[Rfam]
RNA sequence: GCACUCCAGCAAGCCCUGCCCUUCUAUCUCAGUGCUGGGCCAGGGCAAUGACGGUGCCAUAGCAAUGCAAAGUGUAUCCAGAUGGGCCUCCCUCCUCCAUUGGAGCUUGUCUCUACAACUUUGAUACAUUU
Number, nucleotide and partner (000 for none) at each position: 001g057002c056003a055004c054005u053006c000007c000008a000009g000010c000011a000012a000013g046014c045015c044016c043017u042018g041019c000020c038021c037022u000023u000024c000025u000026a000027u000028c000029u000030c000031a000032g000033u000034g000035c000036u000037g021038g020039g000040c000041c018042a017043g016044g015045g014046c013047a000048a000049u000050g000051a000052c000053g005054g004055u003056g002057c001058c000059a000060u000061a000062g000063c000064a000065a000066u000067g000068c123069a122070a121071a120072g119073u000074g000075u000076a000077u000078c000079c000080a112081g111082a110083u109084g108085g107086g106087c105088c000089u000090c000091c103092c102093u000094c000095c000096u000097c000098c000099a000100u000101u000102g092103g091104a000105g087106c086107u085108u084109g083110u082111c081112u080113c000114u000115a000116c000117a000118a000119c072120u071121u070122u069123g068124a000125u000126a000127c000128a000129u000130u000131u000
RNA: Small nucleolar RNA SNORA55
Organism: Megalops atlanticus